[Rfam]
Rfam assigns this 167-nucleotide sequence from [Collinsella] massiliensis to the family "FMN riboswitch aptamer (RFN element)". The RFN element is a highly conserved domain that is found frequently in the 5'-untranslated regions of prokaryotic mRNAs that encode for flavin mononucleotide (FMN) biosynthesis and transport proteins.
RNA sequence: GCAUAGUUUCAGGGUUGGGUGAGAUUCCCUACCGGCGGUAACUGGCCAACAUCCCGCGUGCGGUGAAAGGAAGCCGCGCGGCGCGCCAGGAGCCCGCGAGCCGCACAUGCGGCCGAUCCGGUGAGAUUCCGGAGCCGACGGUACAGUCCGGAUGGAAGAAACGGAGG
Numbered sequence: 001g002c003a004u005a006g007u008u009u010c011a012g013g014g015u016u017g018g019g020u021g022a023g024a025u026u027c028c029c030u031a032c033c034g035g036c037g038g039u040a041a042c043u044g045g046c047c048a049a050c051a052u053c054c055c056g057c058g059u060g061c062g063g064u065g066a067a068a069g070g071a072a073g074c075c076g077c078g079c080g081g082c083g084c085g086c087c088a089g090g091a092g093c094c095c096g097c098g099a100g101c102c103g104c105a106c107a108u109g110c111g112g113c114c115g116a117u118c119c120g121g122u123g124a125g126a127u128u129c130c131g132g133a134g135c136c137g138a139c140g141g142u143a144c145a146g147u148c149c150g151g152a153u154g155g156a157a158g159a160a161a162c163g164g165a166g167g
Base pairs, nucleotide, nucleotide: 004164006162007161008160009159010158017029018028019027031147032146033137034136035097036096037095038094100113101112102111117133118132119131120130121129139150140149141148
Dot-bracket structure: ...(.(((((......(((.......))).[[((((((.......................................................))))..(((........)))...(((((.......)))))..)).(((....]]))).......))))).)...
The organism belongs to Enorma, within Bacteria.